[Rfam]
RNA sequence: AAAAAGGGUAGAGGCUGCGAUAUUUAUCAGUACUAAUAAUGAGGUAAGCACAAUGAUUUAUUAGGAAAGGAACUAUCGCCGAAGCUUAUAACUAAUGCUUUGAAGUUAUAUUGCUGGGUAUGCAUAAAAUAUAUGCAUAACUGUCACAAACUUGUUUUGUGGGGAGCUACAUUUAAG
Number, nucleotide and partner (000 for none) at each position: 001a000002a000003a000004a000005a000006g172007g000008g170009u169010a168011g167012a000013g000014g000015c000016u000017g079018c078019g077020a076021u075022a074023u000024u072025u071026a000027u000028c000029a000030g000031u000032a000033c064034u063035a062036a061037u060038a059039a058040u000041g000042a000043g000044g000045u000046a000047a000048g000049c000050a000051c000052a000053a000054u000055g000056a000057u000058u039059u038060a037061u036062u035063a034064g033065g000066a000067a000068a000069g000070g000071a025072a024073c000074u022075a021076u020077c019078g018079c017080c000081g000082a000083a115084g114085c113086u000087u110088a109089u108090a107091a106092c105093u104094a000095a000096u000097g000098c000099u000100u000101u000102g000103a000104a093105g092106u091107u090108a089109u088110a087111u000112u000113g085114c084115u083116g142117g141118g000119u139120a138121u137122g136123c135124a134125u133126a132127a000128a000129a000130u000131a000132u126133a125134u124135g123136c122137a121138u120139a119140a000141c117142u116143g000144u162145c161146a160147c159148a158149a157150a156151c000152u000153u000154g000155u000156u150157u149158u148159g147160u146161g145162g144163g000164g000165a000166g000167c011168u010169a009170c008171a000172u006173u000174u000175a000176a000177g000
This 177-nucleotide RNA from Romboutsia lituseburensis belongs to the Rfam family "Lysine riboswitch aptamer". Riboswitches are metabolite binding domains within certain messenger RNAs that serve as precision sensors for their corresponding targets. Allosteric rearrangement of mRNA structure is mediated by ligand binding, and this results in modulation of gene expression. Taxonomically the source falls in Romboutsia lituseburensis (Bacteria, Bacillati, Peptostreptococcales, Peptostreptococcaceae). The match comes from Rfam's covariance-model search (118 bits).